[Rfam]
This 72-nucleotide RNA sequence from Ectopseudomonas oleovorans belongs to the Rfam family "narK RNA".
The family's RNA type in Rfam is cis-regulatory element.
The base pairs follow the family's consensus structure, which is taken from published work.
It is one of the family's seed sequences.
Taxonomically the source falls in Ectopseudomonas oleovorans (Bacteria, Pseudomonadota, Gammaproteobacteria, Pseudomonadaceae).
RNA sequence: GGCUCGGCUCUUGCUUGUUCCCUCUCAGCAGGUAGCCAACGGCGGCCACCUCCCUCACGACAACGACGUCGC
Numbered sequence: 001g002g003c004u005c006g007g008c009u010c011u012u013g014c015u016u017g018u019u020c021c022c023u024c025u026c027a028g029c030a031g032g033u034a035g036c037c038a039a040c041g042g043c044g045g046c047c048a049c050c051u052c053c054c055u056c057a058c059g060a061c062a063a064c065g066a067c068g069u070c071g072c
Stems, first nucleotide, its partner, number of pairs: 031050003035046003